[Rfam]
RNA sequence: UUUUAGUAUUGUAGGUGUAAAAGAACAAGACCGCACAAGGUCGCAACCUUGUAAAAAAGCGUA
Numbered sequence: 001u002u003u004u005a006g007u008a009u010u011g012u013a014g015g016u017g018u019a020a021a022a023g024a025a026c027a028a029g030a031c032c033g034c035a036c037a038a039g040g041u042c043g044c045a046a047c048c049u050u051g052u053a054a055a056a057a058a059g060c061g062u063a
Stems, first nucleotide, its partner, number of pairs: 001017001003015002009028004036051004
Dot-bracket structure: [.[[....((((.]].].......)))).......((((........))))............
RNA: GP20-b RNA
Organism: Tepidimicrobium xylanilyticum